[Rfam]
RNA: Gammaprotebacteria rimP leader
Organism: Vibrio gelatinilyticus
RNA sequence: GUUCUACUCUUAAUGAAAAGGGUCCAGCAACGAAAAACCCCGACGAUCGGGGUUUUUUGUUAUCUGUGUUUUUACUUUUAUCACAGAUAAUAUGCUUGGGGUUUAAAUUGGGCUUUUAGCCCUUUUUUU
Numbered sequence: 001g002u003u004c005u006a007c008u009c010u011u012a013a014u015g016a017a018a019a020g021g022g023u024c025c026a027g028c029a030a031c032g033a034a035a036a037a038c039c040c041c042g043a044c045g046a047u048c049g050g051g052g053u054u055u056u057u058u059g060u061u062a063u064c065u066g067u068g069u070u071u072u073u074a075c076u077u078u079u080a081u082c083a084c085a086g087a088u089a090a091u092a093u094g095c096u097u098g099g100g101g102u103u104u105a106a107a108u109u110g111g112g113c114u115u116u117u118a119g120c121c122c123u124u125u126u127u128u129u
Base pairs, nucleotide, nucleotide: 034056035055036054037053038052039051040050041049042048110122111121112120113119